[Rfam]
RNA: DUF3800-I RNA
RNA sequence: UAUAGGUACAGAUAGUGAUUGAUAUACUAUACUGUGUACAACAAGGAAAUGAAUUAGUGUUUAAGCGUAUUUGUAAGUACGUCAUCUUGUUGGGUCGCCCUAAUGGGCGAUUUGUGUUAUAU
Numbered sequence: 001u002a003u004a005g006g007u008a009c010a011g012a013u014a015g016u017g018a019u020u021g022a023u024a025u026a027c028u029a030u031a032c033u034g035u036g037u038a039c040a041a042c043a044a045g046g047a048a049a050u051g052a053a054u055u056a057g058u059g060u061u062u063a064a065g066c067g068u069a070u071u072u073g074u075a076a077g078u079a080c081g082u083c084a085u086c087u088u089g090u091u092g093g094g095u096c097g098c099c100c101u102a103a104u105g106g107g108c109g110a111u112u113u114g115u116g117u118u119a120u121a122u
Stems, first nucleotide, its partner, number of pairs: 007036005012030006039092006049085003052061003065082006093112008